[Rfam]
Rfam assigns this 133-nucleotide RNA sequence from Cavia porcellus to the family "Small nucleolar RNA SNORA40". The family's RNA type in Rfam is H/ACA-box small nucleolar RNA. The family has 28 seed sequences and 2,550 matches in Rfam 15.1. NCBI's taxonomy places the organism under Eukaryota, Craniata, Teleostomi, Mammalia, Cavia. Pairs were carried over by alignment from the consensus structure, which was predicted with RNAalifold. About the family: The snoRNA ACA 40 belongs to the H/ACA family of snoRNAs and guides the pseudouridylation of 28S rRNA subunit at position U4565. NB This family has a high threshold value to exclude a large number of closely related sequences that do not appear to have conserved H and ACA boxes, and may be pseudogenes.
RNA sequence: GGUACUCUGUGUGUUUUGUUUAACCUUUGAACAAAAAAGUAAAUAUAUAAAAUAGGUAUAAAAAAUUUGUCCUCUUUUGAAACUCAGAACUCAUUGUUAAUUAUGAGUUUUGAUACAUAUAGAAAGGAAUAUU
Dot-bracket structure: .(((((.(((.(..(((((....(....).)))))..............).)))))))).........((.((.(((((.....((((((((((........)))))))))).......))))).)).))...